About this RNA: The family of this 336-nucleotide RNA from Elaphomyces granulatus is "A. fumigatus sRNA Afu_309". Rfam classes the family as a small RNA. A search with the family's covariance model found it, with a score of 210 bits.

RNA sequence: UUCUUUCUUUUCAUCACAGAUCUGUGUCCUGCGAUCCCGACUAGAAUGUCUUCUCUCAUGGAGCCAUUCUAUGCUCAGGUUGAUUGUUGGACAAUUCGACGACGAAGGAGCCACUAGCUUUCUGCCAUGGUGUCAAUAUCCUGUCGACAGAUCUCAGAUGAAUUGCCAGCUCUGAGUUCUCUAGCCUUGAGUUCCCUUCUACGGAGGGUGAGCUCGGUUGGACAUCCCAGGUGCUGGCGGCGUCAUAUUCCCAGUCCCUUUACCGAUAGCGAGUCUACGGACUUGCGUGGCCGUCGGCUGAUGAGGUUAGGGAAAAACCAUGACUGGCCAACAUUU
Numbered sequence: 001u002u003c004u005u006u007c008u009u010u011u012c013a014u015c016a017c018a019g020a021u022c023u024g025u026g027u028c029c030u031g032c033g034a035u036c037c038c039g040a041c042u043a044g045a046a047u048g049u050c051u052u053c054u055c056u057c058a059u060g061g062a063g064c065c066a067u068u069c070u071a072u073g074c075u076c077a078g079g080u081u082g083a084u085u086g087u088u089g090g091a092c093a094a095u096u097c098g099a100c101g102a103c104g105a106a107g108g109a110g111c112c113a114c115u116a117g118c119u120u121u122c123u124g125c126c127a128u129g130g131u132g133u134c135a136a137u138a139u140c141c142u143g144u145c146g147a148c149a150g151a152u153c154u155c156a157g158a159u160g161a162a163u164u165g166c167c168a169g170c171u172c173u174g175a176g177u178u179c180u181c182u183a184g185c186c187u188u189g190a191g192u193u194c195c196c197u198u199c200u201a202c203g204g205a206g207g208g209u210g211a212g213c214u215c216g217g218u219u220g221g222a223c224a225u226c227c228c229a230g231g232u233g234c235u236g237g238c239g240g241c242g243u244c245a246u247a248u249u250c251c252c253a254g255u256c257c258c259u260u261u262a263c264c265g266a267u268a269g270c271g272a273g274u275c276u277a278c279g280g281a282c283u284u285g286c287g288u289g290g291c292c293g294u295c296g297g298c299u300g301a302u303g304a305g306g307u308u309a310g311g312g313a314a315a316a317a318c319c320a321u322g323a324c325u326g327g328c329c330a331a332c333a334u335u336u
Stems, first nucleotide, its partner, number of pairs: 018154008026092004031087001033085004037079002039076002041073001043070006050063004100146005107134002110131003165234002171231004176226001183219004189215006195208005239329003242324005255313005262307003289299004